The family of this 119-nucleotide sequence from Miscanthus lutarioriparius is "U5 spliceosomal RNA". A search with the family's covariance model found it, with a score of 94 bits. From the family's description: U5 RNA is a component of both types of known spliceosome. The precise function of this molecule is unknown, though it is known that the 5' loop is required for splice site selection and p220 binding, and that both the 3' stem-loop and the Sm site are important for Sm protein binding and cap methylation. NCBI's taxonomy places the organism under Eukaryota, Tracheophyta, Euphyllophyta, Spermatophyta, Miscanthus. The literature on the family includes a 1996 paper in J Biol Chem by Hinz et al., "Domain analysis of human U5 RNA. Cap trimethylation, protein binding, and spliceosome assembly".
RNA sequence: AGCUGUGCGGUGCACACAGAGCGAACUAUUCUUUCGCCUUUUACUAAAGAAUACCGUGUGUGCGCCGCAAAAAGCAGCAUACGCCUAUUUUUGGAGGGUGCUCUCCUAUCUGGAGAGCC
Numbered sequence: 001a002g003c004u005g006u007g008c009g010g011u012g013c014a015c016a017c018a019g020a021g022c023g024a025a026c027u028a029u030u031c032u033u034u035c036g037c038c039u040u041u042u043a044c045u046a047a048a049g050a051a052u053a054c055c056g057u058g059u060g061u062g063c064g065c066c067g068c069a070a071a072a073a074g075c076a077g078c079a080u081a082c083g084c085c086u087a088u089u090u091u092u093g094g095a096g097g098g099u100g101c102u103c104u105c106c107u108a109u110c111u112g113g114a115g116a117g118c119c
Stems, first nucleotide, its partner, number of pairs: 003077004008067011027053008100118006